[Rfam]
RNA sequence: ACCUUCUUACUUAAGCUCUGUACUAAAACUGCAGAAACUAAUAAUCAUGUCUUAGUAUGUAUAAAUAAAGCAGCAGAGUAAACACAAAAAGAAAAUCAACUGUACCAGAAAAUAGAAAACCUGAGUUGAACCUCUUUCUUAAGCCCAGAGUACUUUAUUCUAAGAUUUGGACAAUAAUA
Numbered sequence: 001a002c003c004u005u006c007u008u009a010c011u012u013a014a015g016c017u018c019u020g021u022a023c024u025a026a027a028a029c030u031g032c033a034g035a036a037a038c039u040a041a042u043a044a045u046c047a048u049g050u051c052u053u054a055g056u057a058u059g060u061a062u063a064a065a066u067a068a069a070g071c072a073g074c075a076g077a078g079u080a081a082a083c084a085c086a087a088a089a090a091g092a093a094a095a096u097c098a099a100c101u102g103u104a105c106c107a108g109a110a111a112a113u114a115g116a117a118a119a120c121c122u123g124a125g126u127u128g129a130a131c132c133u134c135u136u137u138c139u140u141a142a143g144c145c146c147a148g149a150g151u152a153c154u155u156u157a158u159u160c161u162a163a164g165a166u167u168u169g170g171a172c173a174a175u176a177a178u179a
Stems, first nucleotide, its partner, number of pairs: 018078002021075001023073002030067002035058001037056005044050002101173003105170005123151001127147002
Description
The family of this 179-nucleotide RNA sequence from Crocuta crocuta is "Small nucleolar RNA SNORA81". The family's consensus secondary structure was predicted with WAR. NCBI's taxonomy places the organism under Eukaryota, Gnathostomata, Mammalia, Boreoeutheria, Crocuta. Its family is annotated with RNA processing and nucleolus in the Gene Ontology.